RNA sequence: UUUGGGAAAUGAUGCUAAAAAUGCAAUCAGAGGAGUCAUCUCUGCUGAAUUAUUAUUUGCACGUCAGUCUGAUCCCAAA
Numbered sequence: 001u002u003u004g005g006g007a008a009a010u011g012a013u014g015c016u017a018a019a020a021a022u023g024c025a026a027u028c029a030g031a032g033g034a035g036u037c038a039u040c041u042c043u044g045c046u047g048a049a050u051u052a053u054u055a056u057u058u059g060c061a062c063g064u065c066a067g068u069c070u071g072a073u074c075c076c077a078a079a
Base pairs, nucleotide, nucleotide: 001079002078003077004076005075006074007073
RNA: Small nucleolar RNA Z122
Organism: Phaseolus vulgaris